Shown here is a 119-nucleotide RNA sequence from Plantimonas leprariae, a member of the family "Alphaproteobacterial ar14".
Its family is annotated with biological process involved in symbiotic interaction in the Gene Ontology.
Rfam's curators write: Smr14C2 was renamed NfeR1 (Nodule Formation Efficiency RNA) highly expressed in salt stress and during the symbiotic interaction on legume roots.
NCBI's taxonomy places the organism under Bacteria, Pseudomonadota, Alphaproteobacteria, Hyphomicrobiales, Plantimonas.

RNA sequence: GAGUUUCGCCUCGGUCCAUCCUCCUCCCAGGACCGGCGCGAACAGGCCUGCGACCUCCUCCUCCCGAUCGCAGGCCAUUUUAGAACGCCCGCCGGCUCCUCCCCCGGCGGGCGUUUUUC
Dot-bracket structure: ......(((.(((((((............))))))).)))....(((((((((..............)))))))))........(((((((((((........))))))))))).....